[Rfam]
RNA sequence: UAACAAGCCUCCAGCGUGCCUGGGUCUGUGGUGACCCCGAGCGUUCCUAUGGCGCUUGCCAGAGCAGUGUUGAAACGGUUUGAGGCCUUGCCCUGCUCCAUCCAGAGCAAGGUUAUGGAAGUUUUAGACAGUU
Numbered sequence: 001u002a003a004c005a006a007g008c009c010u011c012c013a014g015c016g017u018g019c020c021u022g023g024g025u026c027u028g029u030g031g032u033g034a035c036c037c038c039g040a041g042c043g044u045u046c047c048u049a050u051g052g053c054g055c056u057u058g059c060c061a062g063a064g065c066a067g068u069g070u071u072g073a074a075a076c077g078g079u080u081u082g083a084g085g086c087c088u089u090g091c092c093c094u095g096c097u098c099c100a101u102c103c104a105g106a107g108c109a110a111g112g113u114u115a116u117g118g119a120a121g122u123u124u125u126a127g128a129c130a131g132u133u
Stems, first nucleotide, its partner, number of pairs: 004058005017043003022037005071126005086112006093105003
Small nucleolar RNA SNORA9: a 133-nucleotide RNA sequence from Sciurus carolinensis. Rfam's curators write: ACA9 is a member of the H/ACA class of snoRNA that guide the sites of modification of uridines to pseudouridines. NCBI's taxonomy places the organism under Eukaryota, Eumetazoa, Gnathostomata, Sciurini, Sciurus. The family's consensus secondary structure was predicted with PFOLD.